[Rfam]
RNA: Small nucleolar RNA SNORD59
Organism: Todus mexicanus
Nucleotides: 074
Stems, first nucleotide, its partner, number of pairs: 001074003005070001
Number, partner (000 for none) and nucleotide at each position: 001074c002073c003072u004000u005070c006000g007000c008000u009000g010000a011000u012000g013000a014000g015000c016000g017000a018000c019000a020000a021000c022000u023000u024000g025000a026000c027000u028000u029000u030000c031000g032000u033000u034000c035000u036000u037000c038000u039000g040000a041000g042000c043000u044000g045000g046000c047000u048000g049000a050000a051000g052000c053000c054000a055000c056000c057000u058000g059000g060000a061000c062000c063000a064000a065000u066000c067000u068000g069000a070005g071000g072003a073002g074001g